[Rfam]
RNA sequence: GCCUUGAUAGCUUAAACUAAAGCACCGGUCUUGUAAGCCGGAGACUGUAGCCUAACCCCUACUCAAGGCU
Numbered sequence: 001g002c003c004u005u006g007a008u009a010g011c012u013u014a015a016a017c018u019a020a021a022g023c024a025c026c027g028g029u030c031u032u033g034u035a036a037g038c039c040g041g042a043g044a045c046u047g048u049a050g051c052c053u054a055a056c057c058c059c060u061a062c063u064c065a066a067g068g069c070u
Base pairs, nucleotide, nucleotide: 001069002068003067004066005065006064007063010023011022012021013020025041026040027039028038029037047062048061049060050059
Dot-bracket structure: (((((((..((((......)))).(((((.......))))).....((((........))))))))))).
This 70-nucleotide RNA sequence belongs to the Rfam family "tRNA". The base pairs follow the family's consensus structure, which is taken from published work. Rfam describes the family as follows. Transfer RNA (tRNA) molecules are approximately 80 nucleotides in length. Their secondary structure includes four short double-helical elements and three loops (D, anti-codon, and T loops). Further hydrogen bonds mediate the characteristic L-shaped molecular structure. tRNAs have two regions of fundamental functional importance: the anti-codon, which is responsible for specific mRNA codon recognition, and the 3' end, to which the tRNAs corresponding amino acid is attached (by aminoacyl-tRNA synthetases). tRNAs cope with the degeneracy of the genetic code in two manners: having more than one tRNA (with a specific anti-codon) for a particular amino acid; and 'wobble' base-pairing, i.e. permitting non-standard base-pairing at the 3rd anti-codon position. It is annotated as a transfer RNA.